RNA sequence: AGGAAGCAUCGAUAAAGCUCAGGAGGGAUAGCGCCAUUGAUGGAUAAUUACAGAGAACUGGUGUUAAGUUGCUCCAUCCUCAUCUAUUGGCGCUAUCUAUCCUGAGUUUCAUGGGCUCUUCCU
Numbered sequence: 001a002g003g004a005a006g007c008a009u010c011g012a013u014a015a016a017g018c019u020c021a022g023g024a025g026g027g028a029u030a031g032c033g034c035c036a037u038u039g040a041u042g043g044a045u046a047a048u049u050a051c052a053g054a055g056a057a058c059u060g061g062u063g064u065u066a067a068g069u070u071g072c073u074c075c076a077u078c079c080u081c082a083u084c085u086a087u088u089g090g091c092g093c094u095a096u097c098u099a100u101c102c103u104g105a106g107u108u109u110c111a112u113g114g115g116c117u118c119u120u121c122c123u
Base pairs, nucleotide, nucleotide: 010114016108017107018106019105020104021103022102023101024100026098027097028096029095030094031093032092033091034090035089